RNA sequence: UAAUAGUCAAGGGAGCUUUCUUCAGUCCACUCAUGGGUGGUUAUAGGAUUUAAUUAGCUGCCGACUCAUUCAUCCAAAUACUGAGUUAAGGUACGAGGAGAUUACCCAGUAAAUGAGUGAAUGAUGCGGUAGACAAAUUGAAUCCUAAACUUCCUGUACUUGGACUGAAGGGAGCUCCCUUUGCUCUUGUA
Numbered sequence: 001u002a003a004u005a006g007u008c009a010a011g012g013g014a015g016c017u018u019u020c021u022u023c024a025g026u027c028c029a030c031u032c033a034u035g036g037g038u039g040g041u042u043a044u045a046g047g048a049u050u051u052a053a054u055u056a057g058c059u060g061c062c063g064a065c066u067c068a069u070u071c072a073u074c075c076a077a078a079u080a081c082u083g084a085g086u087u088a089a090g091g092u093a094c095g096a097g098g099a100g101a102u103u104a105c106c107c108a109g110u111a112a113a114u115g116a117g118u119g120a121a122u123g124a125u126g127c128g129g130u131a132g133a134c135a136a137a138u139u140g141a142a143u144c145c146u147a148a149a150c151u152u153c154c155u156g157u158a159c160u161u162g163g164a165c166u167g168a169a170g171g172g173a174g175c176u177c178c179c180u181u182u183g184c185u186c187u188u189g190u191a
Stems, first nucleotide, its partner, number of pairs: 013177008023167007036154001058132002061129003067123004075115001
RNA: MIR159 microRNA precursor family